Notes
Rfam assigns this 123-nucleotide sequence from Caenorhabditis latens to the family "Small nucleolar RNA U6-47". Rfam 15.1 lists 18 matches to the family in 9 species. Rfam links the family to the GO terms nucleolus and RNA processing. On this family, see Zemann et al., Nucleic Acids Res 2006: "Evolution of small nucleolar RNAs in nematodes". The family's RNA type in Rfam is C/D-box small nucleolar RNA.
RNA sequence: GAGCAAUGACGAUACAGAUCACUGACGGUUUAACGUUGAAACAAUAAGUUUUCCAAGUCGUCGUUUGACUGAAAACGUUUCGAUACGGGCGUGACCGAGCGACUAAUCUUCUCUCCGAGCUUU
Numbered sequence: 001g002a003g004c005a006a007u008g009a010c011g012a013u014a015c016a017g018a019u020c021a022c023u024g025a026c027g028g029u030u031u032a033a034c035g036u037u038g039a040a041a042c043a044a045u046a047a048g049u050u051u052u053c054c055a056a057g058u059c060g061u062c063g064u065u066u067g068a069c070u071g072a073a074a075a076c077g078u079u080u081c082g083a084u085a086c087g088g089g090c091g092u093g094a095c096c097g098a099g100c101g102a103c104u105a106a107u108c109u110u111c112u113c114u115c116c117g118a119g120c121u122u123u
Base pairs, nucleotide, nucleotide: 001122002121003120004119